Rfam assigns this 88-nucleotide RNA sequence from Branchiostoma lanceolatum to the family "mir-2060 microRNA precursor family". Lineage of the source: Eukaryota > Metazoa > Bilateria > Branchiostomatidae > Branchiostoma. The family's consensus secondary structure was predicted with RNAalifold. Gene Ontology terms of the family: miRNA-mediated post-transcriptional gene silencing and RISC complex.
[Rfam]
RNA sequence: GUGUGUGUGGAUAGUGUUUAGCACCAAGGACAGGUAUGUUUGCUUGUGAGUGAAUGGUGUUCAGCACCAAGGACAGGUAUGUUUGUGU
Numbered sequence: 001g002u003g004u005g006u007g008u009g010g011a012u013a014g015u016g017u018u019u020a021g022c023a024c025c026a027a028g029g030a031c032a033g034g035u036a037u038g039u040u041u042g043c044u045u046g047u048g049a050g051u052g053a054a055u056g057g058u059g060u061u062c063a064g065c066a067c068c069a070a071g072g073a074c075a076g077g078u079a080u081g082u083u084u085g086u087g088u
Stems, first nucleotide, its partner, number of pairs: 002075003012069001014067005020061007030047007